RNA: Small nucleolar RNA SNORA24
RNA sequence: AUUUCUGUUAAAUAGAUCUGCACUGUAGCAGUCUCCCUUCAUAGCCAUAGAAGAGUCUGUUCUUGUUGGCCAAGCUGUCACUCAUUUAAUUGGUAUCAGAUUCUAGCUUUCACAAGUAUCAUUC
Numbered sequence: 001a002u003u004u005c006u007g008u009u010a011a012a013u014a015g016a017u018c019u020g021c022a023c024u025g026u027a028g029c030a031g032u033c034u035c036c037c038u039u040c041a042u043a044g045c046c047a048u049a050g051a052a053g054a055g056u057c058u059g060u061u062c063u064u065g066u067u068g069g070c071c072a073a074g075c076u077g078u079c080a081c082u083c084a085u086u087u088a089a090u091u092g093g094u095a096u097c098a099g100a101u102u103c104u105a106g107c108u109u110u111c112a113c114a115a116g117u118a119u120c121a122u123u124c
Stems, first nucleotide, its partner, number of pairs: 002051003006047002015035002018031004064121002066115003069111001072108001075099003080094002083092002